[Rfam]
RNA sequence: CGGCGGGCCACAUCCCCCCACCGGGAUGCUCUAGACUGGAAGGUUUAGUUUA
Numbered sequence: 001c002g003g004c005g006g007g008c009c010a011c012a013u014c015c016c017c018c019c020a021c022c023g024g025g026a027u028g029c030u031c032u033a034g035a036c037u038g039g040a041a042g043g044u045u046u047a048g049u050u051u052a
Base pairs, nucleotide, nucleotide: 011028012027013026014025015024016023032047033046034045035044036043037042
RNA: serC leader